[Rfam]
This 108-nucleotide RNA sequence from Cytobacillus kochii belongs to the Rfam family "PyrR binding site". This family represents the PyrR binding site and terminator structure. Lineage of the source: Bacteria > Bacillati > Bacilli > Caryophanales > Cytobacillus. A reference for the family is Bonner et al. (2001), "Molecular recognition of pyr mRNA by the Bacillus subtilis attenuation regulatory protein PyrR", Nucleic Acids Res. It is annotated as a cis-regulatory element.
RNA sequence: AGCCCUUUUUAAAUGCAGUCCAGAGAGGCUGACAAAGGGGGAAGUAAUAGACUGCUCCUGUCUAUGCUUACCAACCCUCUUUGUCCGCAGGCAAAGAGGGUUUUAUAU
Numbered sequence: 001a002g003c004c005c006u007u008u009u010u011a012a013a014u015g016c017a018g019u020c021c022a023g024a025g026a027g028g029c030u031g032a033c034a035a036a037g038g039g040g041g042a043a044g045u046a047a048u049a050g051a052c053u054g055c056u057c058c059u060g061u062c063u064a065u066g067c068u069u070a071c072c073a074a075c076c077c078u079c080u081u082u083g084u085c086c087g088c089a090g091g092c093a094a095a096g097a098g099g100g101u102u103u104u105a106u107a108u
Base pairs, nucleotide, nucleotide: 003040004039005038006037007036008035009034016031017030018029019028020027041071043069044068047065048064049063050062051061052060054058073102074101075100076099077098078097079096080095081094082093083092084091085090